[Rfam]
RNA sequence: AGGGCGACCGGGUCGACCCCCCGGGUGACCAUCAGGUAGUCGCGCAUCGCGAUCGCGUGGCGGCCCUC
Numbered sequence: 001a002g003g004g005c006g007a008c009c010g011g012g013u014c015g016a017c018c019c020c021c022c023g024g025g026u027g028a029c030c031a032u033c034a035g036g037u038a039g040u041c042g043c044g045c046a047u048c049g050c051g052a053u054c055g056c057g058u059g060g061c062g063g064c065c066c067u068c
Stems, first nucleotide, its partner, number of pairs: 005062002008059001011030003016026003035056001038053001040052005

The record is a 68-nucleotide sequence from Frankia alni, which matches "ASdes TB sRNA" in Rfam. The literature on the family includes a 2009 paper in Mol Microbiol by Arnvig and Young, "Identification of small RNAs in Mycobacterium tuberculosis". Rfam classes the family as a small RNA. Taxonomically the source falls in Frankia alni (Bacteria, Bacillati, Actinomycetota, Frankiales).